Annotation: This 305-nucleotide RNA sequence from Capnocytophaga sp. oral taxon 332 belongs to the Rfam family "Bacterial RNase P class A". Rfam links the family to the GO terms dimeric ribonuclease P complex, tRNA processing and ribonuclease P activity.
RNA sequence: AGAGCAAAUCAGCUUAUCGCUACAGAAGUAGAGGAAAGUCUGGACACCACAGAGCAUCAUAGCGGGUAACGCCCGUCCGCCGCGAGGUGAGGACAAGUGCAACAGAAAGGAUGUAUGGGUAAUGCCAUAGUGAAAUCAGGUAAACUCUAUGAGGUGCAACGCCGCGUAAACCAGCGUUUGAGGGUUGCUCGCCCGAUGUUGGAGGGUAGGCGGUUAGAGCUAAUGAGUAAUCAUUAGCCGAGAUAAAUGAUAAGCACUUAUCAGCAAUGAUAAGAACAGAAUCCGGCUUAUGAUUUGCUCUUUUA
Numbered sequence: 001a002g003a004g005c006a007a008a009u010c011a012g013c014u015u016a017u018c019g020c021u022a023c024a025g026a027a028g029u030a031g032a033g034g035a036a037a038g039u040c041u042g043g044a045c046a047c048c049a050c051a052g053a054g055c056a057u058c059a060u061a062g063c064g065g066g067u068a069a070c071g072c073c074c075g076u077c078c079g080c081c082g083c084g085a086g087g088u089g090a091g092g093a094c095a096a097g098u099g100c101a102a103c104a105g106a107a108a109g110g111a112u113g114u115a116u117g118g119g120u121a122a123u124g125c126c127a128u129a130g131u132g133a134a135a136u137c138a139g140g141u142a143a144a145c146u147c148u149a150u151g152a153g154g155u156g157c158a159a160c161g162c163c164g165c166g167u168a169a170a171c172c173a174g175c176g177u178u179u180g181a182g183g184g185u186u187g188c189u190c191g192c193c194c195g196a197u198g199u200u201g202g203a204g205g206g207u208a209g210g211c212g213g214u215u216a217g218a219g220c221u222a223a224u225g226a227g228u229a230a231u232c233a234u235u236a237g238c239c240g241a242g243a244u245a246a247a248u249g250a251u252a253a254g255c256a257c258u259u260a261u262c263a264g265c266a267a268u269g270a271u272a273a274g275a276a277c278a279g280a281a282u283c284c285g286g287c288u289u290a291u292g293a294u295u296u297g298c299u300c301u302u303u304u305a
Stems, first nucleotide, its partner, number of pairs: 001301011012255007020031004036289003040286005045156004052190004057152005062076005077091001078089004092147002097145002099141002160212004171202005182194004219238008
Ribonuclease P (RNase P) is a ubiquitous endoribonuclease, found in archaea, bacteria and eukarya as well as chloroplasts and mitochondria. Its best characterised activity is the generation of mature 5'-ends of tRNAs by cleaving the 5'-leader elements of precursor-tRNAs.